[Rfam]
RNA sequence: AUAAUGGUGGUUCGUAAACAUCCCACCUAAAAAAACUAGGAGGUU
Numbered sequence: 001a002u003a004a005u006g007g008u009g010g011u012u013c014g015u016a017a018a019c020a021u022c023c024c025a026c027c028u029a030a031a032a033a034a035a036c037u038a039g040g041a042g043g044u045u
Stems, first nucleotide, its partner, number of pairs: 006027005015038002

Rfam assigns this 45-nucleotide RNA from Ligilactobacillus pobuzihii to the family "PreQ1 (pre queuosine) riboswitch aptamer". It scores 49 bits against the family's covariance model. The pairing is the family consensus, mapped onto this sequence. Its family is annotated with queuosine biosynthetic process in the Gene Ontology. A reference for the family is Reader et al. (2004), "Identification of four genes necessary for biosynthesis of the modified nucleoside queuosine", J Biol Chem.